[Rfam]
RNA: Iron response element I
RNA sequence: CUGUCUCUUGCUUCAAUAGUUUUGGAUAGAACAG
Numbered sequence: 001c002u003g004u005c006u007c008u009u010g011c012u013u014c015a016a017u018a019g020u021u022u023u024g025g026a027u028a029g030a031a032c033a034g
Stems, first nucleotide, its partner, number of pairs: 001034004006030003010027001012026005